[Rfam]
The record is a 540-nucleotide part of an RNA from Dictyostelium discoideum, which matches "Eukaryotic small subunit ribosomal RNA" in Rfam. Lineage of the source: Eukaryota > Eumycetozoa > Dictyostelia > Dictyosteliaceae > Dictyostelium. The family's consensus secondary structure is taken from published work. The literature on the family includes a 2002 paper in BMC Bioinformatics by Cannone et al., "The comparative RNA web (CRW) site: an online database of comparative sequence and structure information for ribosomal, intron, and other RNAs". Clan: SSU clan.

RNA sequence: GUUGUUGCAGUUAAAAAGCUCGUAGUUGAAGUUUAAGGUUUACUGGGUUUAUGUCAGUUAUCACUUCGUGGUCAACUCGACACCAGUAUCUCUUUCUUAAUAGUUCAGCUUGUAUUAUCUUUGAUAGUGCUUGUUUGGACAUUUCACUGUGAGAAAAUUGUGGUGUUUAAAGCAGGCGUCUCGCCUGAUCUUUUGCAGCAUGGUAUGAUGAAACAUGACAUUUUACGCUAUUGGUUUGCGUUUAAAGUGUAAUGAUUAAUAGGGAUGGAUGGGGGUGUUCAUAUUGGUGGGCGAGAGGUGAAAUUCGUUGACCCUAUCAAGAUGAACUUCUGCGAAAGCAUUCACCAAAUACUUCCCCAUUAAUCAAGAACGAAAGUUUGGGGAUCGAAGACGAUCAGAUACCGUCGUAGUCCAAACUAUAAACUAUGUCGACCAGGGAUCGGUUAAAAUUUUUUCAAAAUUUAAUCGGCACCUUGUGAGAAAUCAUGAGUGUUUAGAUUCCGGGGGGAGUAUGGUCGCAAGUCUGAAACUUAAAGGAAU
Numbered sequence: 001g002u003u004g005u006u007g008c009a010g011u012u013a014a015a016a017a018g019c020u021c022g023u024a025g026u027u028g029a030a031g032u033u034u035a036a037g038g039u040u041u042a043c044u045g046g047g048u049u050u051a052u053g054u055c056a057g058u059u060a061u062c063a064c065u066u067c068g069u070g071g072u073c074a075a076c077u078c079g080a081c082a083c084c085a086g087u088a089u090c091u092c093u094u095u096c097u098u099a100a101u102a103g104u105u106c107a108g109c110u111u112g113u114a115u116u117a118u119c120u121u122u123g124a125u126a127g128u129g130c131u132u133g134u135u136u137g138g139a140c141a142u143u144u145c146a147c148u149g150u151g152a153g154a155a156a157a158u159u160g161u162g163g164u165g166u167u168u169a170a171a172g173c174a175g176g177c178g179u180c181u182c183g184c185c186u187g188a189u190c191u192u193u194u195g196c197a198g199c200a201u202g203g204u205a206u207g208a209u210g211a212a213a214c215a216u217g218a219c220a221u222u223u224u225a226c227g228c229u230a231u232u233g234g235u236u237u238g239c240g241u242u243u244a245a246a247g248u249g250u251a252a253u254g255a256u257u258a259a260u261a262g263g264g265a266u267g268g269a270u271g272g273g274g275g276u277g278u279u280c281a282u283a284u285u286g287g288u289g290g291g292c293g294a295g296a297g298g299u300g301a302a303a304u305u306c307g308u309u310g311a312c313c314c315u316a317u318c319a320a321g322a323u324g325a326a327c328u329u330c331u332g333c334g335a336a337a338g339c340a341u342u343c344a345c346c347a348a349a350u351a352c353u354u355c356c357c358c359a360u361u362a363a364u365c366a367a368g369a370a371c372g373a374a375a376g377u378u379u380g381g382g383g384a385u386c387g388a389a390g391a392c393g394a395u396c397a398g399a400u401a402c403c404g405u406c407g408u409a410g411u412c413c414a415a416a417c418u419a420u421a422a423a424c425u426a427u428g429u430c431g432a433c434c435a436g437g438g439a440u441c442g443g444u445u446a447a448a449a450u451u452u453u454u455u456c457a458a459a460a461u462u463u464a465a466u467c468g469g470c471a472c473c474u475u476g477u478g479a480g481a482a483a484u485c486a487u488g489a490g491u492g493u494u495u496a497g498a499u500u501c502c503g504g505g506g507g508g509a510g511u512a513u514g515g516u517c518g519c520a521a522g523u524c525u526g527a528a529a530c531u532u533a534a535a536g537g538a539a540u
Stems, first nucleotide, its partner, number of pairs: 008503001010501001016500001018371001020369002025364003262358003267352001269350002274346004280324002284320008295306003329340001332339002376417006386410001390406004428499003432491002435474003440469008449461003478485002505532003514525002517522001